RNA sequence: CCGCUGGAUGAUGAAGAUCUUGUCUCGUAUAUCCUUACGGGACUUGAUGAAGAGUACAACCCGUUCAUUGAGAACGUGAGCGCCAGAGCAGAUCCAAUCUCUCUUGGCGAUCUUUAUGCUCAGUUCCUCUCUACU
Numbered sequence: 001c002c003g004c005u006g007g008a009u010g011a012u013g014a015a016g017a018u019c020u021u022g023u024c025u026c027g028u029a030u031a032u033c034c035u036u037a038c039g040g041g042a043c044u045u046g047a048u049g050a051a052g053a054g055u056a057c058a059a060c061c062c063g064u065u066c067a068u069u070g071a072g073a074a075c076g077u078g079a080g081c082g083c084c085a086g087a088g089c090a091g092a093u094c095c096a097a098u099c100u101c102u103c104u105u106g107g108c109g110a111u112c113u114u115u116a117u118g119c120u121c122a123g124u125u126c127c128u129c130u131c132u133a134c135u
Stems, first nucleotide, its partner, number of pairs: 005133004088108002091105002
This 135-nucleotide RNA sequence from Eragrostis curvula belongs to the Rfam family "Small nucleolar RNA Z247". Taxonomically the source falls in Eragrostis (Eukaryota, Viridiplantae, Streptophyta, Spermatophyta). Its family is annotated with nucleolus and RNA processing in the Gene Ontology. For this family Rfam cites "The high diversity of snoRNAs in plants: identification and comparative study of 120 snoRNA genes from Oryza sativa" (Chen et al., Nucleic Acids Res, 2003). The base pairs follow the family's consensus structure, which was predicted with PFOLD. The match comes from Rfam's covariance-model search (46 bits).